A member of the RNA family "Guanidine-I riboswitch aptamer" from Zavarzinia aquatilis, 114 nucleotides long. A search with the family's covariance model found it, with a score of 84 bits.
RNA sequence: GAGUUUGGCGGCUAGGGUUCCGGCCGGGAGAUUGUCCCGGCGCAGGUCCGAGAGUUGCCGUCCGGCGGGGGAGAAAUCCCGACGGAUGCACGGCGGGACAAAAGCCCGGGAGGC
Number, nucleotide and partner (000 for none) at each position: 001g000002a000003g000004u000005u000006u000007g059008g058009c057010g056011g055012c054013u000014a000015g049016g048017g000018u000019u000020c046021c045022g043023g041024c040025c039026g038027g037028g036029a000030g000031a000032u000033u000034g000035u000036c028037c027038c026039g025040g024041c023042g000043c022044a000045g021046g020047u000048c016049c015050g000051a000052g000053a000054g012055u011056u010057g009058c008059c007060g087061u086062c085063c084064g083065g000066c081067g080068g079069g078070g077071g000072a000073g000074a000075a000076a000077u070078c069079c068080c067081g066082a000083c064084g063085g062086a061087u060088g000089c109090a000091c112092g000093g000094c000095g107096g106097g105098a000099c000100a000101a000102a000103a000104g000105c097106c096107c095108g000109g089110g000111a000112g091113g000114c000